[Rfam]
RNA sequence: CAAACGGCUCUUUUCAGAGCCACCAAAUAAUCAAGAAAGAAUACUG
Numbered sequence: 001c002a003a004a005c006g007g008c009u010c011u012u013u014u015c016a017g018a019g020c021c022a023c024c025a026a027a028u029a030a031u032c033a034a035g036a037a038a039g040a041a042u043a044c045u046g
Stems, first nucleotide, its partner, number of pairs: 006021006
Shown here is a 46-nucleotide RNA sequence from Strongylocentrotus purpuratus, a member of the family "Histone 3' UTR stem-loop". It is annotated as a cis-regulatory element. The source organism's lineage runs through Eukaryota, Echinozoa, Euechinoidea, Echinidea and Strongylocentrotus.